[Rfam]
A member of the RNA family "Small nucleolar RNA SNORA15" from Muntiacus reevesi, 141 nucleotides long.
The family has 22 seed sequences and 974 matches in Rfam 15.1.
For this family Rfam cites "RNomics: an experimental approach that identifies 201 candidates for novel, small, non-messenger RNAs in mouse" (Huttenhofer et al., EMBO J, 2001).
RNA sequence: GCAUGGCUGAAUACUGUGUUCUUUUUGUCAGUAGUUUACACAGCCAGACACCAUGCAAAAGUAAAGUUUUCCCUUUAAAAUGGCUAUGAUGGUAUGCUGACUUUUUUCAUAGCAUGCUGUUGUUUAAAAGGGGAUACAAAU
Dot-bracket structure: ((((((.......((((((..................)))))).......))))))............((((.(((((........(((((((((((((..........))))))))))))).))))).).))).......